[Rfam]
RNA: Mason-Pfizer monkey virus packaging signal
Organism: Cercocebus atys
RNA sequence: GGGCGGCCGAACAGGGAGCUGCGAAACGAGGGACUUCGUGAGGAGAGACGCAAAGACGGUCGACCGCUAACCCAGACAAAAGAGUAAACUCUUUCCGGAUUCGCGGCGAACCUGCGCGGUCAGAAUUCAGAAGGUAAAGUGACGCGUCCGAAUGGGACUAAGAUUAAGUCAGCUCAAGAUCUAUGUAGGACAAUUAAAAGAGCUUAAAGUUCGAGGGUAAAGGUUAAAGGUUAGAUGAUUUGGCUUAGGUUUUUUGAUUUUGUAAAAGACACGUUGCCCCU
Numbered sequence: 001g002g003g004c005g006g007c008c009g010a011a012c013a014g015g016g017a018g019c020u021g022c023g024a025a026a027c028g029a030g031g032g033a034c035u036u037c038g039u040g041a042g043g044a045g046a047g048a049c050g051c052a053a054a055g056a057c058g059g060u061c062g063a064c065c066g067c068u069a070a071c072c073c074a075g076a077c078a079a080a081a082g083a084g085u086a087a088a089c090u091c092u093u094u095c096c097g098g099a100u101u102c103g104c105g106g107c108g109a110a111c112c113u114g115c116g117c118g119g120u121c122a123g124a125a126u127u128c129a130g131a132a133g134g135u136a137a138a139g140u141g142a143c144g145c146g147u148c149c150g151a152a153u154g155g156g157a158c159u160a161a162g163a164u165u166a167a168g169u170c171a172g173c174u175c176a177a178g179a180u181c182u183a184u185g186u187a188g189g190a191c192a193a194u195u196a197a198a199a200g201a202g203c204u205u206a207a208a209g210u211u212c213g214a215g216g217g218u219a220a221a222g223g224u225u226a227a228a229g230g231u232u233a234g235a236u237g238a239u240u241u242g243g244c245u246u247a248g249g250u251u252u253u254u255u256g257a258u259u260u261u262g263u264a265a266a267a268g269a270c271a272c273g274u275u276g277c278c279c280c281u
Base pairs, nucleotide, nucleotide: 007031008030014027036048037047039045090136092134093132094131099127100125101124102119106115144158147156148155149154165206166205167204168203170202212256213255214254215253216252217250218249221241222240223239224238225237226236265281268278270276